Rfam assigns this 128-nucleotide RNA from Urocitellus parryii to the family "Small nucleolar RNA SNORA26". The organism belongs to Urocitellus, within Eukaryota. Pairs were carried over by alignment from the consensus structure, which was predicted with RNAalifold. On this family, see Huttenhofer et al., EMBO J 2001: "RNomics: an experimental approach that identifies 201 candidates for novel, small, non-messenger RNAs in mouse". Its family is annotated with RNA processing and nucleolus in the Gene Ontology. About the family: The snoRNA HBI-6 belong to the H/ACA family of snoRNAs, guiding the pseudouridylation of position U4522 if the 28S rRNA. HBI-6 is the human orthologue of mouse MBI-6 snoRNA.

RNA sequence: GUGUCCUUUUAAGGCUGAUGUGGUACUUCAAGAGGCUUAUUUUACCACAGAAGGGUAAAAUAAGUCUCCAUAAAACCCAGAGAAGAGAUUUUAAGACUCCUCUUUAGAUCCUCUCUGGUGUUAUUAUA
Numbered sequence: 001g002u003g004u005c006c007u008u009u010u011a012a013g014g015c016u017g018a019u020g021u022g023g024u025a026c027u028u029c030a031a032g033a034g035g036c037u038u039a040u041u042u043u044a045c046c047a048c049a050g051a052a053g054g055g056u057a058a059a060a061u062a063a064g065u066c067u068c069c070a071u072a073a074a075a076c077c078c079a080g081a082g083a084a085g086a087g088a089u090u091u092u093a094a095g096a097c098u099c100c101u102c103u104u105u106a107g108a109u110c111c112u113c114u115c116u117g118g119u120g121u122u123a124u125u126a127u128a
Stems, first nucleotide, its partner, number of pairs: 002057009014046001016044002019035001021032001064122001066120001068118003077107001079105005085099003089096002